[Rfam]
RNA sequence: CGGUGGUGGCGGCUGGGGCGGCAAUCACGGUGGUGGCUGG
Numbered sequence: 001c002g003g004u005g006g007u008g009g010c011g012g013c014u015g016g017g018g019c020g021g022c023a024a025u026c027a028c029g030g031u032g033g034u035g036g037c038u039g040g
Stems, first nucleotide, its partner, number of pairs: 001030001003028004
Record summary:
Prion pseudoknot: a 40-nucleotide RNA sequence. The literature on the family includes a 2001 paper in Nucleic Acids Res by Barrette et al., "Pseudoknots in prion protein mRNAs confirmed by comparative sequence analysis and pattern searching". This family represents a predicted pseudoknot structure found in prion protein mRNA. It has been suggested that the family has a possible effect in prion protein translation. A search with the family's covariance model found it, with a score of 40 bits. The family's RNA type in Rfam is cis-regulatory element. Pairs were carried over by alignment from the consensus structure, which is taken from published work.